[Rfam]
RNA sequence: AAAAAGGGCUUCUGUCGUGAGUGGCACACGUAGGGCAACCAGAUUGCUCUACGUGCGGAAUCGACAUCAAGAGAUUUCGGAAGCAUAAUUUUUUGAUACCUGGGCAGCUGGUGAUCGUUAAAAAAAAAAAAAAAAAAAAAGACUUUAUUACUUUUAAAAUAUUGAUGACUGUCUAUACCCAUUUUUCUUUUCUUUCUUCAGCCCCUAA
Numbered sequence: 001a002a003a004a005a006g007g008g009c010u011u012c013u014g015u016c017g018u019g020a021g022u023g024g025c026a027c028a029c030g031u032a033g034g035g036c037a038a039c040c041a042g043a044u045u046g047c048u049c050u051a052c053g054u055g056c057g058g059a060a061u062c063g064a065c066a067u068c069a070a071g072a073g074a075u076u077u078c079g080g081a082a083g084c085a086u087a088a089u090u091u092u093u094u095g096a097u098a099c100c101u102g103g104g105c106a107g108c109u110g111g112u113g114a115u116c117g118u119u120a121a122a123a124a125a126a127a128a129a130a131a132a133a134a135a136a137a138a139a140a141g142a143c144u145u146u147a148u149u150a151c152u153u154u155u156a157a158a159a160u161a162u163u164g165a166u167g168a169c170u171g172u173c174u175a176u177a178c179c180c181a182u183u184u185u186u187c188u189u190u191u192c193u194u195u196c197u198u199c200a201g202c203c204c205c206u207a208a
Stems, first nucleotide, its partner, number of pairs: 008084005013026005027055012056079007102206003107202005113197001
RNA: U11 spliceosomal RNA